[Rfam]
The family of this 81-nucleotide sequence from Anolis carolinensis is "Small nucleolar RNA SNORD72".
RNA sequence: AGCUUAUCCAUGAUGUCUUUAUUACAAAAAAUGUCUGAACAUAUGAGUUCUAGUGAUUUUACAUUGUAACUGAGAUAAGCU
Numbered sequence: 001a002g003c004u005u006a007u008c009c010a011u012g013a014u015g016u017c018u019u020u021a022u023u024a025c026a027a028a029a030a031a032u033g034u035c036u037g038a039a040c041a042u043a044u045g046a047g048u049u050c051u052a053g054u055g056a057u058u059u060u061a062c063a064u065u066g067u068a069a070c071u072g073a074g075a076u077a078a079g080c081u
Stems, first nucleotide, its partner, number of pairs: 002080007
A reference for the family is Huttenhofer et al. (2001), "RNomics: an experimental approach that identifies 201 candidates for novel, small, non-messenger RNAs in mouse", EMBO J.
The base pairs follow the family's consensus structure.
Rfam describes the family as follows. snoRNA HBII-240 belongs to the CD family of snoRNAs.
Its family is annotated with nucleolus and RNA processing in the Gene Ontology.